Background: This 108-nucleotide RNA from Candidatus Micrarchaeum sp. AZ1 belongs to the Rfam family "tRNA". Gene Ontology term of the family: triplet codon-amino acid adaptor activity. It scores 59 bits against the family's covariance model. By type it is a transfer RNA. Pairs were carried over by alignment from the consensus structure, which is taken from published work.
[Rfam]
RNA sequence: GCCCUGGUAGCUCAAUGGCAGAGCGCCUGUCUUGUAAACUUCUUGAAAAGAAGUUUAAUCAAGAACCAAGAUAACAGGAGGUUGAGGGUUCAAUUCCCUCUCAGGGCU
Numbered sequence: 001g002c003c004c005u006g007g008u009a010g011c012u013c014a015a016u017g018g019c020a021g022a023g024c025g026c027c028u029g030u031c032u033u034g035u036a037a038a039c040u041u042c043u044u045g046a047a048a049a050g051a052a053g054u055u056u057a058a059u060c061a062a063g064a065a066c067c068a069a070g071a072u073a074a075c076a077g078g079a080g081g082u083u084g085a086g087g088g089u090u091c092a093a094u095u096c097c098c099u100c101u102c103a104g105g106g107c108u
Base pairs, nucleotide, nucleotide: 001107002106003105004104005103006102007101010024011023012022013021026078027077028076029075030074084100085099086098087097088096